[Rfam]
RNA: mir-544 microRNA precursor family
Organism: Muntiacus reevesi
RNA sequence: AUCACCGAGGAGUCUUUUUAAAAAGCAGAUUCUGAUUCAGUGGGUCUGAGCUGGGGACUAAGAUUCUGCAUUUCUGACAAGCUCCCAGGUGAGGCUGA
Numbered sequence: 001a002u003c004a005c006c007g008a009g010g011a012g013u014c015u016u017u018u019u020a021a022a023a024a025g026c027a028g029a030u031u032c033u034g035a036u037u038c039a040g041u042g043g044g045u046c047u048g049a050g051c052u053g054g055g056g057a058c059u060a061a062g063a064u065u066c067u068g069c070a071u072u073u074c075u076g077a078c079a080a081g082c083u084c085c086c087a088g089g090u091g092a093g094g095c096u097g098a
Base pairs, nucleotide, nucleotide: 003091004090005089009085010084011083014081015080016079018077019076020075021073022072023071025069026068027067028066029065031063032062033061